[Rfam]
RNA sequence: ACAAAAAUUCCUUGAACCGAACAAUCGCCCGCCCCGAUGAGCAACGAUAACCAUUUCCGUUGCCUCGGGCCCGAACCUGGUUCGUCCGGAUCGAUCAGCCCCCCAGCCCCCCGGCGUACGGGGUUCGGGCCCACCAUUUCAGUUCCCUGUCCUUAAGGGCCGCCGAAAGGCGGCCCUUCU
Dot-bracket structure: .............(....(.....).................................((((.....(((((((((((..(.((.((((........((......))...)))))).)..)))))))))))........)))))............((((((((....))))))))....
RNA: Bradyrhizobiaceae sRNA BjrC174
Organism: Alsobacter soli